Shown here is a 144-nucleotide RNA from Musa troglodytarum, a member of the family "small nucleolar RNA snoR134". By type it is an H/ACA-box small nucleolar RNA. Rfam links the family to the GO terms nucleolus and RNA processing.

RNA sequence: AUGCACGUUGCACCCCGGGCUUCUCUGAAGAGACCUGUGACGAUCGAGGGCCCAAUGCUCGUGCGGGAUUAAGUUGCCGUUCCGUGUUGCAGGUCUGUUGAUGAAAUCCGACCUCUGGUCUGUGUCAAAGUGACGGCUAAAUUC
Number, nucleotide and partner (000 for none) at each position: 001a000002u000003g064004c063005a062006c061007g060008u000009u000010g058011c057012a000013c000014c000015c000016c000017g052018g051019g000020c049021u048022u046023c000024u043025c042026u000027g000028a000029a000030g000031a000032g000033a000034c000035c000036u000037g000038u000039g000040a000041c000042g025043a024044u000045c000046g022047a000048g021049g020050g000051c018052c017053c000054a000055a000056u000057g011058c010059u000060c007061g006062u005063g004064c003065g000066g000067g000068a000069u000070u000071a000072a000073g000074u000075u000076g137077c136078c135079g134080u133081u132082c000083c000084g000085u127086g126087u000088u124089g123090c122091a121092g120093g119094u000095c000096u000097g114098u000099u000100g000101a000102u000103g000104a000105a000106a000107u000108c000109c000110g000111a000112c000113c000114u097115c000116u000117g000118g000119u093120c092121u091122g090123u089124g088125u000126c086127a085128a000129a000130g000131u000132g081133a080134c079135g078136g077137c076138u000139a000140a000141a000142u000143u000144c000